The family of this 298-nucleotide RNA from Pachyramphus minor is "Metazoan signal recognition particle RNA". A reference for the family is Rosenblad et al. (2003), "SRPDB: Signal Recognition Particle Database", Nucleic Acids Res.
RNA sequence: GCUGGAUGUGGUGGUUUGUGCCUGUGAUCUGAGUGCUGGGAGGGCUGAAGUUGAAGCAUGGUUUGAUUCCAGGGAUUUUGGGCUGCAACAAGUCGUGCCGAGCCGAAGUCCGUGUGAAGUUUGGCGUGGAUAUGGUGAUCCUGAGAAAGUUAGGAGCCACCAGGUGGCCUAAGGAAGGAGGAACUGGCCCAGGUUGAGGUGGAGCAGGUCAAAAUUCAGGUGUUGAUCCAUAGUGGGAUGGUGUGGGUGAAUAUUCCCUGUAGCACAGCCUGGCAAUGGAAGAGAAACACAGUUUCCU
Numbered sequence: 001g002c003u004g005g006a007u008g009u010g011g012u013g014g015u016u017u018g019u020g021c022c023u024g025u026g027a028u029c030u031g032a033g034u035g036c037u038g039g040g041a042g043g044g045c046u047g048a049a050g051u052u053g054a055a056g057c058a059u060g061g062u063u064u065g066a067u068u069c070c071a072g073g074g075a076u077u078u079u080g081g082g083c084u085g086c087a088a089c090a091a092g093u094c095g096u097g098c099c100g101a102g103c104c105g106a107a108g109u110c111c112g113u114g115u116g117a118a119g120u121u122u123g124g125c126g127u128g129g130a131u132a133u134g135g136u137g138a139u140c141c142u143g144a145g146a147a148a149g150u151u152a153g154g155a156g157c158c159a160c161c162a163g164g165u166g167g168c169c170u171a172a173g174g175a176a177g178g179a180g181g182a183a184c185u186g187g188c189c190c191a192g193g194u195u196g197a198g199g200u201g202g203a204g205c206a207g208g209u210c211a212a213a214a215u216u217c218a219g220g221u222g223u224u225g226a227u228c229c230a231u232a233g234u235g236g237g238a239u240g241g242u243g244u245g246g247g248u249g250a251a252u253a254u255u256c257c258c259u260g261u262a263g264c265a266c267a268g269c270c271u272g273g274c275a276a277u278g279g280a281a282g283a284g285a286a287a288c289a290c291a292g293u294u295u296c297c298u
Stems, first nucleotide, its partner, number of pairs: 001045001002043002004023002007020005028041003047296007059285001062282003065277001067275001069273005078268003082264006092255001095252002098249001102248003106244001108242002110237002113235003117231001119228001121226007130165002133162005139156001141154002144151002168174002177217003185211005194202003

The family is grouped with related families in Rfam's "SRP clan". Taxonomically the source falls in Pachyramphus (Eukaryota, Eumetazoa, Dinosauria, Theropoda).